[Rfam]
RNA: MIR394 microRNA precursor family
Organism: Glycine max
RNA sequence: AUUCCAUAGCCAUUUUGGCAUUCUGUCCACCUCCAUUAAUAUUAAAUGGGUUGUUUUAGAAUCACCCCCAAAAUGGUGGCAGUUGGAGGUGGCCAGUAGGCCAAACGGGCUCUGUGAA
Numbered sequence: 001a002u003u004c005c006a007u008a009g010c011c012a013u014u015u016u017g018g019c020a021u022u023c024u025g026u027c028c029a030c031c032u033c034c035a036u037u038a039a040u041a042u043u044a045a046a047u048g049g050g051u052u053g054u055u056u057u058a059g060a061a062u063c064a065c066c067c068c069c070a071a072a073a074u075g076g077u078g079g080c081a082g083u084u085g086g087a088g089g090u091g092g093c094c095a096g097u098a099g100g101c102c103a104a105a106c107g108g109g110c111u112c113u114g115u116g117a118a
Base pairs, nucleotide, nucleotide: 011108015104016103017102018101019100024095025094027092028091029090030089031088032087033086034085